This 89-nucleotide sequence from Geobacter sp. DSM 9736 belongs to the Rfam family "c-di-GMP-I riboswitch aptamer". NCBI's taxonomy places the organism under Bacteria, Pseudomonadati, Geobacterales, Geobacteraceae, Geobacter.
RNA sequence: UGACGAAAAAGGCAAACCACUCCGAAAGGGUGGGACGCAAAGCCACUGGCCUGACUCCCGAAAACGGGAAUGGCGGCAAGGCUGCCGGC
Number, nucleotide and partner (000 for none) at each position: 001u000002g000003a000004c000005g000006a000007a000008a000009a000010a000011g000012g038013c037014a000015a000016a000017c033018c032019a031020c030021u000022c029023c028024g000025a000026a000027a000028g023029g022030g020031u019032g018033g017034g000035a000036c000037g013038c012039a000040a000041a083042g082043c081044c080045a000046c000047u078048g077049g074050c073051c072052u000053g000054a000055c000056u068057c067058c066059c000060g000061a000062a000063a000064a000065c000066g058067g057068g056069a000070a000071u000072g051073g050074c049075g000076g000077c048078a047079a000080g044081g043082c042083u041084g000085c000086c000087g000088g000089c000